[Rfam]
RNA sequence: UCGAUAUCUGCAGCAGUGGCUGCAAUAUUGU
Numbered sequence: 001u002c003g004a005u006a007u008c009u010g011c012a013g014c015a016g017u018g019g020c021u022g023c024a025a026u027a028u029u030g031u
Base pairs, nucleotide, nucleotide: 002030003029004028005027006026007025009024010023011022012021013020014018

A member of the RNA family "Iron response element II", 31 nucleotides long. The match comes from Rfam's covariance-model search (35 bits). By type it is a cis-regulatory element. Rfam describes the family as follows. IRE, TFRC, SLC40A1, SDHB, SLC11A2, CDC42BPA, ACO2, ALAS2_H.SAPIENS, CDC14A, EPAS1, ALAS2, qoxD, Hao1, NDUFS1, transferrin, Aconitate. The base pairs follow the family's consensus structure, which is taken from published work.